RNA: Fluoride riboswitch aptamer (crcB RNA motif)
Organism: Leptospirillum sp. Group IV 'UBA BS'
RNA sequence: AUUCCUGGCGGCGAUGGGGUUCGCCUUUCCCUGUUCCUGACGGACAGGGUGAUGACUCCUACCAUGGG
Number, nucleotide and partner (000 for none) at each position: 001a000002u000003u000004c000005c000006u000007g000008g000009c000010g025011g024012c023013g022014a000015u000016g059017g058018g057019g056020u055021u054022c013023g012024c011025c010026u000027u000028u000029c000030c000031c000032u000033g000034u000035u000036c000037c000038u000039g000040a000041c000042g000043g000044a000045c000046a000047g000048g000049g000050u000051g000052a000053u000054g021055a020056c019057u018058c017059c016060u000061a000062c000063c000064a000065u000066g000067g000068g000